[Rfam]
Nucleotides: 101
Stems, first nucleotide, its partner, number of pairs: 001101005010089010020078003026057002029055008040095003044091001061075004
Number, partner (000 for none) and nucleotide at each position: 001101u002100g003099c004098a005097a006000a007000a008000u009000a010089g011088g012087a013086a014085c015084a016083u017082a018081c019080g020078c021077g022076u023000u024000a025000a026057g027056u028000g029055u030054u031053c032052g033051g034050c035049g036048g037000a038000u039000g040095g041094g042093g043000a044091g045000u046000u047000g048036c049035c050034g051033c052032u053031g054030a055029a056027a057026c058000g059000a060000a061075a062074a063073g064072c065000g066000g067000a068000a069000a070000g071000c072064g073063c074062u075061u076022g077021c078020g079000g080019u081018g082017u083016g084015u085014g086013u087012u088011c089010c090000g091044c092000a093042c094041c095040c096000g097005u098004u099003g100002c101001a
The family of this 101-nucleotide sequence from Zhenpiania hominis is "THF (Tetrahydrofolate) riboswitch aptamer". For this family Rfam cites "A eubacterial riboswitch class that senses the coenzyme tetrahydrofolate" (Ames et al., Chem Biol, 2010). Gene Ontology term of the family: tetrahydrofolate metabolic process. The base pairs follow the family's consensus structure, which is taken from published work.